[Rfam]
The record is a 179-nucleotide sequence from Bacillus sp. HNG, which matches "Lysine riboswitch aptamer" in Rfam.
RNA sequence: AGUGAUGAUAGAGGUGCAAGCUUUAUCAGUAUGCAAUAGGAGGGGGAUGAGCCCCUUUGAUGAUUGCUGAAAGGAAAGUUUGCCGAAGUGAAAAAGGACUCAUACCCUUUUUUGCUGGUCUUAUGUUUAAGAGACGUAAGAUUGUCAAGAUGAAUUCAUCUUGGAGAGCUAUCUCACGG
Numbered sequence: 001a002g003u004g005a006u007g008a009u010a011g012a013g014g015u016g017c018a019a020g021c022u023u024u025a026u027c028a029g030u031a032u033g034c035a036a037u038a039g040g041a042g043g044g045g046g047a048u049g050a051g052c053c054c055c056u057u058u059g060a061u062g063a064u065u066g067c068u069g070a071a072a073g074g075a076a077a078g079u080u081u082g083c084c085g086a087a088g089u090g091a092a093a094a095a096g097g098a099c100u101c102a103u104a105c106c107c108u109u110u111u112u113u114g115c116u117g118g119u120c121u122u123a124u125g126u127u128u129a130a131g132a133g134a135c136g137u138a139a140g141a142u143u144g145u146c147a148a149g150a151u152g153a154a155u156u157c158a159u160c161u162u163g164g165a166g167a168g169c170u171a172u173c174u175c176a177c178g179g
Base pairs, nucleotide, nucleotide: 007173008172009171010170011169016083017082018081019080020079021078022077023076024075033067034066035065036064037063039061087116088115089114090113091112092111093110094109095108096107097106117143118142119141120140121139122138123137124136125135126134127133145164146163147162148161149160150159151158
The family's consensus secondary structure is taken from published work. Rfam links the family to the GO term lysine biosynthetic process.